[Rfam]
Record summary
A member of the RNA family "mir-208 microRNA precursor family" from Gopherus agassizii, 79 nucleotides long. For this family Rfam cites "New microRNAs from mouse and human" (Lagos-Quintana et al., RNA, 2003). NCBI's taxonomy places the organism under Eukaryota, Eumetazoa, Euteleostomi, Testudinata, Gopherus. Gene Ontology terms of the family: RISC complex and miRNA-mediated post-transcriptional gene silencing. The family's consensus secondary structure was predicted with RNAalifold. Rfam 15.1 lists 563 matches to the family in 255 species.

RNA sequence: UCUAACAGGGAAGCUUUUGGCUCGGGUUAUAUUUUCACUCGCGGCGUAUAAGACGAGCAAAAGGCUUGUUGGUUGGAGG
Numbered sequence: 001u002c003u004a005a006c007a008g009g010g011a012a013g014c015u016u017u018u019g020g021c022u023c024g025g026g027u028u029a030u031a032u033u034u035u036c037a038c039u040c041g042c043g044g045c046g047u048a049u050a051a052g053a054c055g056a057g058c059a060a061a062a063g064g065c066u067u068g069u070u071g072g073u074u075g076g077a078g079g
Base pairs, nucleotide, nucleotide: 003075004074005073006072008070009069011067012066013065014064015063016062017061018060020058023055024054027051028050029049030048031047032046